[Rfam]
This 90-nucleotide RNA sequence from Shewanella mangrovi belongs to the Rfam family "c-di-GMP-I riboswitch aptamer". About the family: GEMM was predicted in a large-scale screen for bacterial structured RNA regulatory elements. Genes associated with GEMM are involved in a diverse array of functions, including chemotaxis regulation, signal transduction, secretion and chitin. The base pairs follow the family's consensus structure, which is taken from published work.
RNA sequence: AAAAUUAACUAGCAAACCAAGCGAAAGCUUGGGACGCAAAACCUCCGGUCUAAGUCUUUCAAUGAUAGAUACGAUAGCGGGGUUACAUUA
Numbered sequence: 001a002a003a004a005u006u007a008a009c010u011a012g013c014a015a016a017c018c019a020a021g022c023g024a025a026a027g028c029u030u031g032g033g034a035c036g037c038a039a040a041a042c043c044u045c046c047g048g049u050c051u052a053a054g055u056c057u058u059u060c061a062a063u064g065a066u067a068g069a070u071a072c073g074a075u076a077g078c079g080g081g082g083u084u085a086c087a088u089u090a
Base pairs, nucleotide, nucleotide: 012037013036017032018031019030020029021028022027040084041083042082043081045080046079047078048075049074050073055069056068057067